[Rfam]
RNA sequence: GACAUGCUCCGGGGUCGGUGUAAUUCCGAACCGGCGGUGACAGCCCGCGACCCACGAGCCUCCCGGCACCAGCCGGUGGUGAGUGGUUGACCUGGUGGAACUCCAGGGCCGACGGUGAAAGUCCGGAUGGGAGGACGCAUGGA
Numbered sequence: 001g002a003c004a005u006g007c008u009c010c011g012g013g014g015u016c017g018g019u020g021u022a023a024u025u026c027c028g029a030a031c032c033g034g035c036g037g038u039g040a041c042a043g044c045c046c047g048c049g050a051c052c053c054a055c056g057a058g059c060c061u062c063c064c065g066g067c068a069c070c071a072g073c074c075g076g077u078g079g080u081g082a083g084u085g086g087u088u089g090a091c092c093u094g095g096u097g098g099a100a101c102u103c104c105a106g107g108g109c110c111g112a113c114g115g116u117g118a119a120a121g122u123c124c125g126g127a128u129g130g131g132a133g134g135a136c137g138c139a140u141g142g143a
Base pairs, nucleotide, nucleotide: 003141004140005139006138007137008135009134010133016028017027018026030122031121032111033110034048035047036046037045043109044108052086053085054084055083091107092106093105094104095103113125114124115123
A member of the RNA family "FMN riboswitch aptamer (RFN element)" from Xylanimonas oleitrophica, 143 nucleotides long. Lineage of the source: Bacteria > Bacillati > Micrococcales > Promicromonosporaceae > Xylanimonas. Rfam's curators write: The RFN element is a highly conserved domain that is found frequently in the 5'-untranslated regions of prokaryotic mRNAs that encode for flavin mononucleotide (FMN) biosynthesis and transport proteins.